Rfam assigns this 68-nucleotide RNA from Muribaculaceae bacterium Isolate-102 to the family "Bacteroidetes FopS (family of paralogous sRNAs)". The organism belongs to Muribaculaceae, within Bacteria. About the family: The RNA-binding protein RbpB and BTncRNA_FopS sRNA are involved in the post-transcription regulation of polysaccharide utilisation loci (PUL). FopS sRNAs function as post-transcriptional repressors by binding to the vicinity of the start codon of the first mRNA of target PUL polycistrons, typically corresponding to the cognate SusC homolog, impeding translation of the respective glycan transporter. Its family is annotated with sRNA-mediated gene silencing in the Gene Ontology. The family has 12 seed sequences and 822 matches in Rfam 15.1. A reference for the family is Ruttiger et al. (2025), "The global RNA-binding protein RbpB is a regulator of polysaccharide utilization in Bacteroides thetaiotaomicron", Nat Commun. Rfam classes the family as a small RNA. A search with the family's covariance model found it, with a score of 72 bits.

Nucleotides: 068
Stems, first nucleotide, its partner, number of pairs: 039056007
Number, partner (000 for none) and nucleotide at each position: 001000g002000u003000g004000u005000u006000u007000u008000u009000c010000a011000u012000g013000g014000u015000a016000u017000u018000a019000g020000a021000u022000u023000u024000a025000a026000g027000g028000u029000u030000a031000a032000g033000g034000a035000g036000a037000u038000u039056a040055u041054u042053u043052g044051u045050c046000g047000u048000g049000a050045g051044a052043c053042a054041a055040a056039u057000a058000a059000u060000u061000u062000u063000u064000u065000u066000a067000u068000a